[Rfam]
RNA sequence: AGCUUUGCGCAGUGGCAGUAUCGUAGCCAAUGAGGUUUAUCCGAGGCGCGAUUAUUGCUAAUUGAAAAGGAAGAUGAAUUACUUGUUUAUGUGUUUAAUUACAGCCUAUAUUGUAUAUCACAGCUAAUUAACGUGACUUUUUCUUAAGUUAUAUGUAAA
Numbered sequence: 001a002g003c004u005u006u007g008c009g010c011a012g013u014g015g016c017a018g019u020a021u022c023g024u025a026g027c028c029a030a031u032g033a034g035g036u037u038u039a040u041c042c043g044a045g046g047c048g049c050g051a052u053u054a055u056u057g058c059u060a061a062u063u064g065a066a067a068a069g070g071a072a073g074a075u076g077a078a079u080u081a082c083u084u085g086u087u088u089a090u091g092u093g094u095u096u097a098a099u100u101a102c103a104g105c106c107u108a109u110a111u112u113g114u115a116u117a118u119c120a121c122a123g124c125u126a127a128u129u130a131a132c133g134u135g136a137c138u139u140u141u142u143c144u145u146a147a148g149u150u151a152u153a154u155g156u157a158a159a
Stems, first nucleotide, its partner, number of pairs: 020052005026047003034042002080135003083131003087127003092122003149158003
Annotation: A member of the RNA family "U4 spliceosomal RNA" from Mustela putorius, 159 nucleotides long. From the family's description: U4 small nuclear RNA (U4 snRNA) is a component of the major U2-dependent spliceosome. A search with the family's covariance model found it, with a score of 78 bits. A reference for the family is Zwieb (1997), "The uRNA database", Nucleic Acids Res. Lineage of the source: Eukaryota > Vertebrata > Sarcopterygii > Eutheria > Mustela putorius. Rfam classes the family as a spliceosomal small nuclear RNA.